Shown here is an 86-nucleotide RNA from Alligator mississippiensis, a member of the family "Small nucleolar RNA SNORD70". A search with the family's covariance model found it, with a score of 65 bits. Lineage of the source: Eukaryota > Sarcopterygii > Amniota > Crocodylia > Alligator. For this family Rfam cites "RNomics: an experimental approach that identifies 201 candidates for novel, small, non-messenger RNAs in mouse" (Huttenhofer et al., EMBO J, 2001).

RNA sequence: CAUACUGUUGUCAAUGAUGGAAUCUUGUUCAACUGAAAAUAAUGAUGUUAUUCAGCCUUUCGUCACUACCACUGAGACAACACAUG
Numbered sequence: 001c002a003u004a005c006u007g008u009u010g011u012c013a014a015u016g017a018u019g020g021a022a023u024c025u026u027g028u029u030c031a032a033c034u035g036a037a038a039a040u041a042a043u044g045a046u047g048u049u050a051u052u053c054a055g056c057c058u059u060u061c062g063u064c065a066c067u068a069c070c071a072c073u074g075a076g077a078c079a080a081c082a083c084a085u086g
Base pairs, nucleotide, nucleotide: 001086002085003084006082007081008080009079010078011077012076